Background:
The family of this 87-nucleotide RNA sequence from Laodelphax striatellus is "mir-276 microRNA precursor family". Its family is annotated with miRNA-mediated post-transcriptional gene silencing and RISC complex in the Gene Ontology. The match comes from Rfam's covariance-model search (80 bits). The organism belongs to Laodelphax, within Eukaryota. On this family, see Skalsky et al., BMC Genomics 2010: "Identification of microRNAs expressed in two mosquito vectors, Aedes albopictus and Culex quinquefasciatus".
[Rfam]
RNA sequence: AUGGCAGAGUACCAGUAGCGAGGUAUAGAGUUCCUACGUGAUAUUAGAACUGUAGGAACUUCAUACCGUGCUUUUGGACAUGCCGAA
Numbered sequence: 001a002u003g004g005c006a007g008a009g010u011a012c013c014a015g016u017a018g019c020g021a022g023g024u025a026u027a028g029a030g031u032u033c034c035u036a037c038g039u040g041a042u043a044u045u046a047g048a049a050c051u052g053u054a055g056g057a058a059c060u061u062c063a064u065a066c067c068g069u070g071c072u073u074u075u076g077g078a079c080a081u082g083c084c085g086a087a
Base pairs, nucleotide, nucleotide: 012077013076014075017072018071019070020069022067023066024065025064026063028061029060030059031058032057033056034055035054036053037052